[Rfam]
RNA sequence: CCGUUAAAUGAUGACGUGACAAAUAGAGUGUCACAUCAUCACACUCAAUCACUGACACGCCAGUGCCUGCCACAUCAUUGAAUGUGAUGACUUGACAAUGAGGUGUCCGUGACAAGGUGUAAUGACAUGAUAUUCCGUUUGUCACCUCAUCGCUUAACGGAA
Numbered sequence: 001c002c003g004u005u006a007a008a009u010g011a012u013g014a015c016g017u018g019a020c021a022a023a024u025a026g027a028g029u030g031u032c033a034c035a036u037c038a039u040c041a042c043a044c045u046c047a048a049u050c051a052c053u054g055a056c057a058c059g060c061c062a063g064u065g066c067c068u069g070c071c072a073c074a075u076c077a078u079u080g081a082a083u084g085u086g087a088u089g090a091c092u093u094g095a096c097a098a099u100g101a102g103g104u105g106u107c108c109g110u111g112a113c114a115a116g117g118u119g120u121a122a123u124g125a126c127a128u129g130a131u132a133u134u135c136c137g138u139u140u141g142u143c144a145c146c147u148c149a150u151c152g153c154u155u156a157a158c159g160g161a162a
Base pairs, nucleotide, nucleotide: 001160002159003158004157005156006155007154009152010151011150012149013148014147016145017144018143019142020141021140022139023138024137026135027134028133029132030131031130032129033128036125037124038123039122041120042119043118044117045116049112050111051110052109054107055106056105057104058103075090076089077088078087

Description
The family of this 162-nucleotide RNA sequence from Glycine soja is "MIR4371 microRNA precursor family". Rfam 15.1 lists 321 matches to the family in 4 species. The base pairs follow the family's consensus structure, which was predicted with RNAalifold. NCBI's taxonomy places the organism under Eukaryota, Mesangiospermae, eudicotyledons, fabids, Glycine subgen. Soja. Its Rfam clan is "MIR4387 microRNA precursor clan".